Shown here is a 132-nucleotide RNA sequence from Taxus chinensis, a member of the family "small nucleolar RNA snoR137".
RNA sequence: GUUGCUUCUUGGAUGUAUAUCUUCCCAUCUAUGGAAGAUGUGCUCAGUAAGAAGCAUAUAUUAAAUUACCAGUCUAACAACAUCCUGAUGCUUUAUUAUAUGCAUCAGGUUCACCUGUCUCCUGGUAAAUUC
Numbered sequence: 001g002u003u004g005c006u007u008c009u010u011g012g013a014u015g016u017a018u019a020u021c022u023u024c025c026c027a028u029c030u031a032u033g034g035a036a037g038a039u040g041u042g043c044u045c046a047g048u049a050a051g052a053a054g055c056a057u058a059u060a061u062u063a064a065a066u067u068a069c070c071a072g073u074c075u076a077a078c079a080a081c082a083u084c085c086u087g088a089u090g091c092u093u094u095a096u097u098a099u100a101u102g103c104a105u106c107a108g109g110u111u112c113a114c115c116u117g118u119c120u121c122c123u124g125g126u127a128a129a130u131u132c
Stems, first nucleotide, its partner, number of pairs: 003056006018042002020038005068126005079111003083107001086104002
It scores 46 bits against the family's covariance model. A reference for the family is Chen and Wu (2009), "Mining small RNA sequencing data: a new approach to identify small nucleolar RNAs in Arabidopsis", Nucleic Acids Res. Rfam links the family to the GO terms nucleolus and RNA processing. The family's consensus secondary structure was predicted with RNAalifold.